[Rfam]
RNA sequence: CUAUAUAUACCCUGUAGGUCCGAAUUUGUGUAUUUUUUCGCAGCAGCCACAAGUUCGCAUCUUGGGGAGUAUGUAGG
Numbered sequence: 001c002u003a004u005a006u007a008u009a010c011c012c013u014g015u016a017g018g019u020c021c022g023a024a025u026u027u028g029u030g031u032a033u034u035u036u037u038u039c040g041c042a043g044c045a046g047c048c049a050c051a052a053g054u055u056c057g058c059a060u061c062u063u064g065g066g067g068a069g070u071a072u073g074u075a076g077g
Base pairs, nucleotide, nucleotide: 002075003074004073005072006071007070010067011066012065016062017061018060019059021057022056023055024054025053026052027051028050029049030048